[Rfam]
RNA sequence: CGAGCUGGCCGGGCGGCCGCGUCGACGAUCUCCGGAUCGUCGCCGAGGAAAGUCCGGACUCCGCAGGGCAGGGUGGUUGUCAACGGCAACCCGGGGCGACCCGCGGGACAGUGCCACAGAGAACAGACCGCCUCCGGGGAGACCCGGCGGUAAGGGUGAAACGGUGGUGUAAGAGACCACCAGCACCCCGGGUGACCGGGGUGGCUCGGUAAACCCCACCCGGAGCAAGACCAAGAGGGCCCCGCUCCGGCGGGACCUGCGCAGGCGUUCGAGGGCGGCCCGUCCGAGUCUGCGGGUAGGUCGCACGAGCCCGUCGGUGACGGCGGGCCUAGAUGGAUGGUCGCCGCCCGCCGCCCCGCGAGGGGUGGAGGGCACAGGAUCCGGCUUACAGGCCAGCUCGUCCC
Numbered sequence: 001c002g003a004g005c006u007g008g009c010c011g012g013g014c015g016g017c018c019g020c021g022u023c024g025a026c027g028a029u030c031u032c033c034g035g036a037u038c039g040u041c042g043c044c045g046a047g048g049a050a051a052g053u054c055c056g057g058a059c060u061c062c063g064c065a066g067g068g069c070a071g072g073g074u075g076g077u078u079g080u081c082a083a084c085g086g087c088a089a090c091c092c093g094g095g096g097c098g099a100c101c102c103g104c105g106g107g108a109c110a111g112u113g114c115c116a117c118a119g120a121g122a123a124c125a126g127a128c129c130g131c132c133u134c135c136g137g138g139g140a141g142a143c144c145c146g147g148c149g150g151u152a153a154g155g156g157u158g159a160a161a162c163g164g165u166g167g168u169g170u171a172a173g174a175g176a177c178c179a180c181c182a183g184c185a186c187c188c189c190g191g192g193u194g195a196c197c198g199g200g201g202u203g204g205c206u207c208g209g210u211a212a213a214c215c216c217c218a219c220c221c222g223g224a225g226c227a228a229g230a231c232c233a234a235g236a237g238g239g240c241c242c243c244g245c246u247c248c249g250g251c252g253g254g255a256c257c258u259g260c261g262c263a264g265g266c267g268u269u270c271g272a273g274g275g276c277g278g279c280c281c282g283u284c285c286g287a288g289u290c291u292g293c294g295g296g297u298a299g300g301u302c303g304c305a306c307g308a309g310c311c312c313g314u315c316g317g318u319g320a321c322g323g324c325g326g327g328c329c330u331a332g333a334u335g336g337a338u339g340g341u342c343g344c345c346g347c348c349c350g351c352c353g354c355c356c357c358g359c360g361a362g363g364g365g366u367g368g369a370g371g372g373c374a375c376a377g378g379a380u381c382c383g384g385c386u387u388a389c390a391g392g393c394c395a396g397c398u399c400g401u402c403c404c
Stems, first nucleotide, its partner, number of pairs: 001400010011389001012345007020045002023042006050387003054384005059225004066281004071221005076090005091105001092103004106216002111214002113210003128155002130151003134147005163181006183205001184203008229302004261293006273285004309328008